[Rfam]
RNA sequence: UAGGAGCGAUGAUGCAGAGGUUGCCUAGAGAUAGGGUUUUCUGCGGAGCGAUGUCCAGUUCAAGAAACCGGGCGACAA
Numbered sequence: 001u002a003g004g005a006g007c008g009a010u011g012a013u014g015c016a017g018a019g020g021u022u023g024c025c026u027a028g029a030g031a032u033a034g035g036g037u038u039u040u041c042u043g044c045g046g047a048g049c050g051a052u053g054u055c056c057a058g059u060u061c062a063a064g065a066a067a068c069c070g071g072g073c074g075a076c077a078a
Stems, first nucleotide, its partner, number of pairs: 014044007024035004052077004058073004

A member of the RNA family "S10-Clostridia ribosomal protein leader", 78 nucleotides long. The family's consensus secondary structure is taken from published work. By type it is a cis-regulatory leader.